[Rfam]
RNA sequence: ACACGAGAAGGGAGGUGGUUCGGCAGAUGUAUGGAUACCGGACGCGUGAGGUGACUGCGGGCUAGCGCCUGCCAGUCGCACACUUUGUGUGGUGCCGGCACGACGCCGGCCGCAAUUCCCAGCAGUCACCGACCCGCGGGCUCGCCGGUACGUCCGGCCGGCUCCUCUCCGGAGGAACCCGAGCCCGCGGGUUUCUGCAU
Numbered sequence: 001a002c003a004c005g006a007g008a009a010g011g012g013a014g015g016u017g018g019u020u021c022g023g024c025a026g027a028u029g030u031a032u033g034g035a036u037a038c039c040g041g042a043c044g045c046g047u048g049a050g051g052u053g054a055c056u057g058c059g060g061g062c063u064a065g066c067g068c069c070u071g072c073c074a075g076u077c078g079c080a081c082a083c084u085u086u087g088u089g090u091g092g093u094g095c096c097g098g099c100a101c102g103a104c105g106c107c108g109g110c111c112g113c114a115a116u117u118c119c120c121a122g123c124a125g126u127c128a129c130c131g132a133c134c135c136g137c138g139g140g141c142u143c144g145c146c147g148g149u150a151c152g153u154c155c156g157g158c159c160g161g162c163u164c165c166u167c168u169c170c171g172g173a174g175g176a177a178c179c180c181g182a183g184c185c186c187g188c189g190g191g192u193u194u195c196u197g198c199a200u
Base pairs, nucleotide, nucleotide: 015058016057017056018055019054060111061110062109063108065106066105070102071101073098075096131193132192133191134190135189136188137187138186139185140184141183142182144162145161146160147159148158149157

Annotation: Shown here is a 200-nucleotide RNA from Streptomyces sp. ERV7, a member of the family "Actinobacteria sRNA Ms_IGR-5". The match comes from Rfam's covariance-model search (92 bits). By type it is a small RNA. Pairs were carried over by alignment from the consensus structure.